[Rfam]
RNA sequence: CAAGCUUAUCGCCCAGGGAGGGAAGGCCAAAAUAUGCGGCCUUUAUCUCUUUAAUUGGGCGGUACGCACC
Numbered sequence: 001c002a003a004g005c006u007u008a009u010c011g012c013c014c015a016g017g018g019a020g021g022g023a024a025g026g027c028c029a030a031a032a033u034a035u036g037c038g039g040c041c042u043u044u045a046u047c048u049c050u051u052u053a054a055u056u057g058g059g060c061g062g063u064a065c066g067c068a069c070c
Base pairs, nucleotide, nucleotide: 007064008063009062010061011060012059013058014057015056016055017050018049019048020047021046026040027039028038
Shown here is a 70-nucleotide RNA sequence from Orthohepacivirus hominis, a member of the family "Hepatitis C virus stem-loop VII".
The source organism's lineage runs through Viruses, Orthornavirae, Kitrinoviricota, Flasuviricetes and Orthohepacivirus.
It is annotated as a cis-regulatory element.